[Rfam]
RNA: L31-Actinobacteria ribosomal protein leader
Organism: Mycobacterium sp. EPa45
RNA sequence: CAGGUACCGGUUCACGCUCGAAUUGCCAGGUAAAAAUCGGGCGACCCGGCGACC
Numbered sequence: 001c002a003g004g005u006a007c008c009g010g011u012u013c014a015c016g017c018u019c020g021a022a023u024u025g026c027c028a029g030g031u032a033a034a035a036a037u038c039g040g041g042c043g044a045c046c047c048g049g050c051g052a053c054c
Base pairs, nucleotide, nucleotide: 003054004053005052007049008048009047010046015043016042017041018040019039020038021037
Dot-bracket structure: ..(((.((((....(((((((...............)))))))..))))..)))